[Rfam]
RNA sequence: AGCAUAUGCUUGUCUCAAAGCUUAAGCCAUGCAUGUCUAAGUACACACGGGCGGUACAGUGAAGCUGCAAAUGGCUCAUUAAAUCAGUUAUGGUUCCUUUGGUUGCUCCUCUCCCGCUCCUUGGAUAACUGUGGUAAUUCUAGAGCUAAUACAUGCCGACAAGUGCCGACCUCUGGGAACGCGUGCAUUUAUCAGACCAAAACCAACCCGGGCCUGCCCAGCAGGUUUGGUGACUCUAGAUAACCUCAAGCCGAUCACACACCCCUGUGGCAGCGACGACCCAUUUGAAUGCCUGCCCUAUCAACUUUCGAUGGUGCAGUACUGUCUGUGCCUACCAUGGUGACCACUGGUGAUGGGGAAUCAGGGUUCAAUUCCAGAGAGGGAGCCUGAGAAAUGGCUACCACAUCCAAGGAAGGCAGCAGGCGUGCAAAUUAACCACUCCCGACCCGGGGAGGUAGUAACGAAAAAUAACAAUACAGGACUCUUUCGAGGCCCUGUAAUUGGAAUGAGUGCACUUUAAAUCCUUGAGCAAGGAUCCAUUGGAGGGCAAGUCUGGUGCCAGCAGCCACGGUAAUUCCACCUCCAAUAGCAUAUCUUAAA
Numbered sequence: 001a002g003c004a005u006a007u008g009c010u011u012g013u014c015u016c017a018a019a020g021c022u023u024a025a026g027c028c029a030u031g032c033a034u035g036u037c038u039a040a041g042u043a044c045a046c047a048c049g050g051g052c053g054g055u056a057c058a059g060u061g062a063a064g065c066u067g068c069a070a071a072u073g074g075c076u077c078a079u080u081a082a083a084u085c086a087g088u089u090a091u092g093g094u095u096c097c098u099u100u101g102g103u104u105g106c107u108c109c110u111c112u113c114c115c116g117c118u119c120c121u122u123g124g125a126u127a128a129c130u131g132u133g134g135u136a137a138u139u140c141u142a143g144a145g146c147u148a149a150u151a152c153a154u155g156c157c158g159a160c161a162a163g164u165g166c167c168g169a170c171c172u173c174u175g176g177g178a179a180c181g182c183g184u185g186c187a188u189u190u191a192u193c194a195g196a197c198c199a200a201a202a203c204c205a206a207c208c209c210g211g212g213c214c215u216g217c218c219c220a221g222c223a224g225g226u227u228u229g230g231u232g233a234c235u236c237u238a239g240a241u242a243a244c245c246u247c248a249a250g251c252c253g254a255u256c257a258c259a260c261a262c263c264c265c266u267g268u269g270g271c272a273g274c275g276a277c278g279a280c281c282c283a284u285u286u287g288a289a290u291g292c293c294u295g296c297c298c299u300a301u302c303a304a305c306u307u308u309c310g311a312u313g314g315u316g317c318a319g320u321a322c323u324g325u326c327u328g329u330g331c332c333u334a335c336c337a338u339g340g341u342g343a344c345c346a347c348u349g350g351u352g353a354u355g356g357g358g359a360a361u362c363a364g365g366g367u368u369c370a371a372u373u374c375c376a377g378a379g380a381g382g383g384a385g386c387c388u389g390a391g392a393a394a395u396g397g398c399u400a401c402c403a404c405a406u407c408c409a410a411g412g413a414a415g416g417c418a419g420c421a422g423g424c425g426u427g428c429a430a431a432u433u434a435a436c437c438a439c440u441c442c443c444g445a446c447c448c449g450g451g452g453a454g455g456u457a458g459u460a461a462c463g464a465a466a467a468a469u470a471a472c473a474a475u476a477c478a479g480g481a482c483u484c485u486u487u488c489g490a491g492g493c494c495c496u497g498u499a500a501u502u503g504g505a506a507u508g509a510g511u512g513c514a515c516u517u518u519a520a521a522u523c524c525u526u527g528a529g530c531a532a533g534g535a536u537c538c539a540u541u542g543g544a545g546g547g548c549a550a551g552u553c554u555g556g557u558g559c560c561a562g563c564a565g566c567c568a569c570g571g572u573a574a575u576u577c578c579a580c581c582u583c584c585a586a587u588a589g590c591a592u593a594u595c596u597u598a599a600a
Base pairs, nucleotide, nucleotide: 001597002596004594005593006592007591008590009589010588013466015464016463019459020426026424027423028422030421031420032419035068036067040066041065042064047060048059075379076378077377085295086294087293090290091289094288095287100283101282102281120155122153123152129145130144132142133141134140163184164183165182166181170177171176189243190242191241192240193239202231203230204229205228210219211218212217255276256275258273262270263269297350298349304341305340306339311338312337313336314335315334316333317330318329354376355375356374357373358369359368360367361366381402382401384399385398386397404415406413407412432457434456436454440452441451442450443449444448472503473502474501475499476498477497478496479495480494482491483490484489510530511529514526540586541585542584543583544582545581554579555578556577562569

A member of the RNA family "Eukaryotic small subunit ribosomal RNA" from Erithacus rubecula, 600 nucleotides of a longer RNA. A search with the family's covariance model found it, with a score of 1411 bits.